[Rfam]
RNA sequence: GGCUGUAUGAAGCGACGCGGAUGGCGUUCGGACGCGGGUUCGAUUCCCGCCAGGUCCACCAGCUGCACCCUCUGCCGUCAGGGCGAUCAAACCGGCUUAAUACCCUCACGAGGUGCCGGUCACUGUGGAACUGAAACAAGCGGAUUCGACCGAGUCGAGGGUGCAGCUGAUGGGCCUGCCCAGGUUUCGACGGGCGCAGGAUGCCGAGUGGACAGCCGGAGAGGCGACUGCCCCUAGCAGCGCAAAAACCACACCUGCCAACGACAGCGUGUACGCCCAGGCCAUCGCGGCCUGA
Numbered sequence: 001g002g003c004u005g006u007a008u009g010a011a012g013c014g015a016c017g018c019g020g021a022u023g024g025c026g027u028u029c030g031g032a033c034g035c036g037g038g039u040u041c042g043a044u045u046c047c048c049g050c051c052a053g054g055u056c057c058a059c060c061a062g063c064u065g066c067a068c069c070c071u072c073u074g075c076c077g078u079c080a081g082g083g084c085g086a087u088c089a090a091a092c093c094g095g096c097u098u099a100a101u102a103c104c105c106u107c108a109c110g111a112g113g114u115g116c117c118g119g120u121c122a123c124u125g126u127g128g129a130a131c132u133g134a135a136a137c138a139a140g141c142g143g144a145u146u147c148g149a150c151c152g153a154g155u156c157g158a159g160g161g162u163g164c165a166g167c168u169g170a171u172g173g174g175c176c177u178g179c180c181c182a183g184g185u186u187u188c189g190a191c192g193g194g195c196g197c198a199g200g201a202u203g204c205c206g207a208g209u210g211g212a213c214a215g216c217c218g219g220a221g222a223g224g225c226g227a228c229u230g231c232c233c234c235u236a237g238c239a240g241c242g243c244a245a246a247a248a249c250c251a252c253a254c255c256u257g258c259c260a261a262c263g264a265c266a267g268c269g270u271g272u273a274c275g276c277c278c279a280g281g282c283c284a285u286c287g288c289g290g291c292c293u294g295a
Stems, first nucleotide, its partner, number of pairs: 001217005013206002024197003028193003034050005051178007218233002
Dot-bracket structure: (((((.......((.........(((.(((...(((((.......)))))(((((((..................................................................................................................)))))))............))).))).......))......)))))((............))..............................................................
RNA: permuted transfer-messenger RNA